A member of the RNA family "permuted transfer-messenger RNA" from Synechococcus sp. RSCCF101, 200 nucleotides long. The family's consensus secondary structure is taken from published work. The sequence is in the family's curated seed alignment. The literature on the family includes a 1996 paper in RNA by Williams and Bartel, "Phylogenetic analysis of tmRNA secondary structure". Bacterial tmRNA, also known as 10Sa RNA or SsrA, is named for its dual tRNA and mRNA-like properties. The source organism's lineage runs through Bacteria, Bacillati, Cyanophyceae, Synechococcaceae and Synechococcus. The family's RNA type in Rfam is non-coding RNA gene.
RNA sequence: GGUGAUCCACACCAGUGUUUCGGACAGCGGUUCGAUUCCGCUCAGCUCCAUUCUCCGGCCCGAUCCAGGGCCAUCCCGGGGCUGCCAUGGUUUCGACGGGGCAUGAGGAGGGUGACUGAAGCCUGCUCGGUGAGAGCAAACCCGUAACAGCGAACAACAUCGUUCGUUUCUCCCGUCAGCCCGCCCCUGUGCUGGCCUGA
Numbered sequence: 001g002g003u004g005a006u007c008c009a010c011a012c013c014a015g016u017g018u019u020u021c022g023g024a025c026a027g028c029g030g031u032u033c034g035a036u037u038c039c040g041c042u043c044a045g046c047u048c049c050a051u052u053c054u055c056c057g058g059c060c061c062g063a064u065c066c067a068g069g070g071c072c073a074u075c076c077c078g079g080g081g082c083u084g085c086c087a088u089g090g091u092u093u094c095g096a097c098g099g100g101g102c103a104u105g106a107g108g109a110g111g112g113u114g115a116c117u118g119a120a121g122c123c124u125g126c127u128c129g130g131u132g133a134g135a136g137c138a139a140a141c142c143c144g145u146a147a148c149a150g151c152g153a154a155c156a157a158c159a160u161c162g163u164u165c166g167u168u169u170c171u172c173c174c175g176u177c178a179g180c181c182c183g184c185c186c187c188u189g190u191g192c193u194g195g196c197c198u199g200a
Base pairs, nucleotide, nucleotide: 001117002116003115005113016103017102018101020099021098022097026042027041028040029039030038043084044083045082046081047080048079049078